The record is a 209-nucleotide RNA sequence from Desulfocucumis palustris, which matches "Enterococcus sRNA 1300" in Rfam. Lineage of the source: Bacteria > Bacillati > Clostridia > Eubacteriales > Desulfocucumis. Expressed in mid and late exponential phases of growth. Expression remained uniform under daptomycin exposure.
RNA sequence: AUGUAUUCUGUUCGUUUAAGAUAAGCCGGCAAUAAAAAAGCAGUAAAAACAUCCACAAUUGUGGGCUUUUUUGUUGUGCUUAUUUUGCGAAACAGGACAUGGAUAAGGGUGAGGUGUAACCAUUUGAGGUUAUACGUUUUCCCUAUGUCUUUUUAACGUUGAUAUGCAGACUAAAGCUCACAUUGAGGAUUUUAGUCUGUAUUUUUUAU
Numbered sequence: 001a002u003g004u005a006u007u008c009u010g011u012u013c014g015u016u017u018a019a020g021a022u023a024a025g026c027c028g029g030c031a032a033u034a035a036a037a038a039a040g041c042a043g044u045a046a047a048a049a050c051a052u053c054c055a056c057a058a059u060u061g062u063g064g065g066c067u068u069u070u071u072u073g074u075u076g077u078g079c080u081u082a083u084u085u086u087g088c089g090a091a092a093c094a095g096g097a098c099a100u101g102g103a104u105a106a107g108g109g110u111g112a113g114g115u116g117u118a119a120c121c122a123u124u125u126g127a128g129g130u131u132a133u134a135c136g137u138u139u140u141c142c143c144u145a146u147g148u149c150u151u152u153u154u155a156a157c158g159u160u161g162a163u164a165u166g167c168a169g170a171c172u173a174a175a176g177c178u179c180a181c182a183u184u185g186a187g188g189a190u191u192u193u194a195g196u197c198u199g200u201a202u203u204u205u206u207u208a209u
Stems, first nucleotide, its partner, number of pairs: 006097007013089003019085008029077013050063003098147005111140002114137004119130003164202006171195002174192003178188002181185001